[Rfam]
RNA sequence: CUCCCCGAAAUGCAUUUAGGUGCAGCGUCGUAUGUUUCACACCUGGGGUAGAGCUACUGGGUGGCCUAGGGGCCUUACCGGGUUACCGAAGUCAACCAAACUCCGAAUACGGGUGUGUGAGAGUGCGGCAGUGAGACGGCGGGGGAUAAGCUUCGUCGUCGAGAGGGAAACAGCCCAGAACGCCAGCUAAGGCCCCUAAGUGUGUGCUCAGUGGGAAAGGAUGUGGAGUCGCUGAGACAACCAGGAGGUUGGCUUAGAAGCAGCCAUCCUUGAAAGAGUGCGUAAUAGCUCACUGGUCAAGUGGUUCUGCGCCGACAAUGUAGCGGGGCUUAAGCACACCGCCGAAGCUGUGUCACUCACACAGGAGAUCCGCUCCUCUCUUUGGGAGGGGGGUGUAGUCGUGUGGGUGGGUAGGGGAGCGUCCUGCAUCCAGGGAAGCGGCCGCGUGAGCGAGUCGUGGAGGGUGUGGGAGUGAGAAU
Numbered sequence: 001c002u003c004c005c006c007g008a009a010a011u012g013c014a015u016u017u018a019g020g021u022g023c024a025g026c027g028u029c030g031u032a033u034g035u036u037u038c039a040c041a042c043c044u045g046g047g048g049u050a051g052a053g054c055u056a057c058u059g060g061g062u063g064g065c066c067u068a069g070g071g072g073c074c075u076u077a078c079c080g081g082g083u084u085a086c087c088g089a090a091g092u093c094a095a096c097c098a099a100a101c102u103c104c105g106a107a108u109a110c111g112g113g114u115g116u117g118u119g120a121g122a123g124u125g126c127g128g129c130a131g132u133g134a135g136a137c138g139g140c141g142g143g144g145g146a147u148a149a150g151c152u153u154c155g156u157c158g159u160c161g162a163g164a165g166g167g168a169a170a171c172a173g174c175c176c177a178g179a180a181c182g183c184c185a186g187c188u189a190a191g192g193c194c195c196c197u198a199a200g201u202g203u204g205u206g207c208u209c210a211g212u213g214g215g216a217a218a219g220g221a222u223g224u225g226g227a228g229u230c231g232c233u234g235a236g237a238c239a240a241c242c243a244g245g246a247g248g249u250u251g252g253c254u255u256a257g258a259a260g261c262a263g264c265c266a267u268c269c270u271u272g273a274a275a276g277a278g279u280g281c282g283u284a285a286u287a288g289c290u291c292a293c294u295g296g297u298c299a300a301g302u303g304g305u306u307c308u309g310c311g312c313c314g315a316c317a318a319u320g321u322a323g324c325g326g327g328g329c330u331u332a333a334g335c336a337c338a339c340c341g342c343c344g345a346a347g348c349u350g351u352g353u354c355a356c357u358c359a360c361a362c363a364g365g366a367g368a369u370c371c372g373c374u375c376c377u378c379u380c381u382u383u384g385g386g387a388g389g390g391g392g393g394u395g396u397a398g399u400c401g402u403g404u405g406g407g408u409g410g411g412u413a414g415g416g417g418a419g420c421g422u423c424c425u426g427c428a429u430c431c432a433g434g435g436a437a438g439c440g441g442c443c444g445c446g447u448g449a450g451c452g453a454g455u456c457g458u459g460g461a462g463g464g465u466g467u468g469g470g471a472g473u474g475a476g477a478a479u
Stems, first nucleotide, its partner, number of pairs: 001419006011024005026131001027129007036122001038117008051104001052102002058098003062094004069087002071084005135160010165176003180353004185349003191343003200340001202339006219313002223310010240297005246270003251265003271275001276291001280289002354409008420474001422471010438458005443452003

This 479-nucleotide part of an RNA from Prauserella flavalba belongs to the Rfam family "Bacterial large subunit ribosomal RNA".